Description:
Rfam assigns this 117-nucleotide sequence from Camellia sinensis to the family "Small nucleolar RNA U19". Gene Ontology terms of the family: nucleolus and RNA processing. It scores 60 bits against the family's covariance model. A reference for the family is Marker et al. (2002), "Experimental RNomics: identification of 140 candidates for small non-messenger RNAs in the plant Arabidopsis thaliana", Curr Biol. Taxonomically the source falls in Camellia (Eukaryota, Streptophyta, Streptophytina, Magnoliopsida).
RNA sequence: GCUUACCUUAGUUAGGGGACAUAAAUUGGUUUGGACCAAACUCUGGUCUUCGGCUAAGGCCUUUUUGAGGGGACUCUGUUUCACCAUCAGUUGUCCUCUAAGCUACCUUGGACAUUU
Dot-bracket structure: ...(..(((......)))..)............(((((.....))))).....((((((....((((.((((((..(............)..))))))))))...))))))......
Numbered sequence: 001g002c003u004u005a006c007c008u009u010a011g012u013u014a015g016g017g018g019a020c021a022u023a024a025a026u027u028g029g030u031u032u033g034g035a036c037c038a039a040a041c042u043c044u045g046g047u048c049u050u051c052g053g054c055u056a057a058g059g060c061c062u063u064u065u066u067g068a069g070g071g072g073a074c075u076c077u078g079u080u081u082c083a084c085c086a087u088c089a090g091u092u093g094u095c096c097u098c099u100a101a102g103c104u105a106c107c108u109u110g111g112a113c114a115u116u117u
Stems, first nucleotide, its partner, number of pairs: 004021001007018003034048005054111006064102004069098006077090001